[Rfam]
R2 RNA element: a 159-nucleotide sequence from Drosophila sechellia. The family's RNA type in Rfam is cis-regulatory element. On this family, see Ruschak et al., RNA 2004: "Secondary structure models of the 3' untranslated regions of diverse R2 RNAs". About the family: This family represents the 3' UTR region of the R2 retrotransposable element. This family is known to interact with the R2-encoded reverse transcriptase in a reaction known as target primed reverse transcription (TPRT). A search with the family's covariance model found it, with a score of 126 bits. The base pairs follow the family's consensus structure, which is taken from published work.
RNA sequence: GCGCAAAUAAUGGUAAUAUAUAAAUUGGCUAUGAGGAUGGUUUUAGUACGUAGGCGUUGCGGAACUUCGGUUCAGAUAGAGCAAUGAAUCGUGCAUGCUAGGAAACUGAAGUGUUGACAGACCUAGUAUCUUUCGAUAGAUUUCCAUACCUCCGCGAUC
Numbered sequence: 001g002c003g004c005a006a007a008u009a010a011u012g013g014u015a016a017u018a019u020a021u022a023a024a025u026u027g028g029c030u031a032u033g034a035g036g037a038u039g040g041u042u043u044u045a046g047u048a049c050g051u052a053g054g055c056g057u058u059g060c061g062g063a064a065c066u067u068c069g070g071u072u073c074a075g076a077u078a079g080a081g082c083a084a085u086g087a088a089u090c091g092u093g094c095a096u097g098c099u100a101g102g103a104a105a106c107u108g109a110a111g112u113g114u115u116g117a118c119a120g121a122c123c124u125a126g127u128a129u130c131u132u133u134c135g136a137u138a139g140a141u142u143u144c145c146a147u148a149c150c151u152c153c154g155c156g157a158u159c
Stems, first nucleotide, its partner, number of pairs: 010158002013155002033152004038146003046094005055086006062073004096128006